[Rfam]
RNA sequence: AGGAUCCAGUGAGGGAAGACGAUGUCCCAAAGGAACGUGUUCAACCAGGAUUUUUCACUCUGGACUCGCCGCGGGAGCCUGCCUUGGCUAAAACCAGAAGUAAGUACAGACGUCCGAUUAUGGGAGAAGAAUUAAGCCAGCAUGAACUUUAUGUUAAACAAUUACAAGAAGCCUUAAAGACGUGAGGGGUAAAGGUUAAAACCCCUGACUUAUUUCAUUUCUUUGAUUUUGUAAAGGACACUUGUCCCU
Numbered sequence: 001a002g003g004a005u006c007c008a009g010u011g012a013g014g015g016a017a018g019a020c021g022a023u024g025u026c027c028c029a030a031a032g033g034a035a036c037g038u039g040u041u042c043a044a045c046c047a048g049g050a051u052u053u054u055u056c057a058c059u060c061u062g063g064a065c066u067c068g069c070c071g072c073g074g075g076a077g078c079c080u081g082c083c084u085u086g087g088c089u090a091a092a093a094c095c096a097g098a099a100g101u102a103a104g105u106a107c108a109g110a111c112g113u114c115c116g117a118u119u120a121u122g123g124g125a126g127a128a129g130a131a132u133u134a135a136g137c138c139a140g141c142a143u144g145a146a147c148u149u150u151a152u153g154u155u156a157a158a159c160a161a162u163u164a165c166a167a168g169a170a171g172c173c174u175u176a177a178a179g180a181c182g183u184g185a186g187g188g189g190u191a192a193a194g195g196u197u198a199a200a201a202c203c204c205c206u207g208a209c210u211u212a213u214u215u216c217a218u219u220u221c222u223u224u225g226a227u228u229u230u231g232u233a234a235a236g237g238a239c240a241c242u243u244g245u246c247c248c249u
Stems, first nucleotide, its partner, number of pairs: 009020002057101003060097002066092001070086002073083002107126001113124004133176003136172002183225007193211006234249001236247004